[Rfam]
RNA sequence: ACCUUUGAUCUCCGGGGAUGACAAAUGAUGUUUUUGUAAGAGUACCUGUCAUCCUUGGACUCUUACAAAAACAUCAUUUGUCAUCCCCGGAGAUCAAAGGU
Numbered sequence: 001a002c003c004u005u006u007g008a009u010c011u012c013c014g015g016g017g018a019u020g021a022c023a024a025a026u027g028a029u030g031u032u033u034u035u036g037u038a039a040g041a042g043u044a045c046c047u048g049u050c051a052u053c054c055u056u057g058g059a060c061u062c063u064u065a066c067a068a069a070a071a072c073a074u075c076a077u078u079u080g081u082c083a084u085c086c087c088c089g090g091a092g093a094u095c096a097a098a099g100g101u
Stems, first nucleotide, its partner, number of pairs: 002100007010092008019083004023078001025077007033069010

Shown here is a 101-nucleotide sequence from Sinocyclocheilus anshuiensis, a member of the family "mir-7 microRNA precursor family". It scores 52 bits against the family's covariance model. Rfam's curators write: This family represents the microRNA (miRNA) precursor mir-7. Rfam 15.1 lists 2,589 matches to the family in 797 species. Rfam links the family to the GO terms RISC complex and miRNA-mediated post-transcriptional gene silencing. The organism belongs to Sinocyclocheilus, within Eukaryota. A reference for the family is Ambros (2001), "microRNAs: tiny regulators with great potential", Cell.